The family of this 85-nucleotide sequence from Streptomyces griseicoloratus is "Streptomyces RNA 6106". Pairs were carried over by alignment from the consensus structure. The match comes from Rfam's covariance-model search (76 bits). Lineage of the source: Bacteria > Bacillati > Kitasatosporales > Streptomycetaceae > Streptomyces. Rfam describes the family as follows. Identified by deep sequencing of transcriptome at the end of exponential growth phase. Appears smaller on northern blot than sequencing transcript. This indicates processing step. Streptomyces specific.
[Rfam]
RNA sequence: GCGCCGUCCCGGGCGGCGCACCCCGUCCGGAACGGGCCAGUGUCGCGGGGGUGGUGCCGUGUCGGCGCAGCACCACCCCCGUCCC
Dot-bracket structure: (((((((.....)))))))((.(.((((.....))).).).)).(((((((((((((.(((....))).)))))))))))))...